[Rfam]
RNA sequence: ACAGCAAUUUUGCGUUACCUGUUAAUCGAGAUUGAAACACAUGAAA
Numbered sequence: 001a002c003a004g005c006a007a008u009u010u011u012g013c014g015u016u017a018c019c020u021g022u023u024a025a026u027c028g029a030g031a032u033u034g035a036a037a038c039a040c041a042u043g044a045a046a
Stems, first nucleotide, its partner, number of pairs: 005034008014026004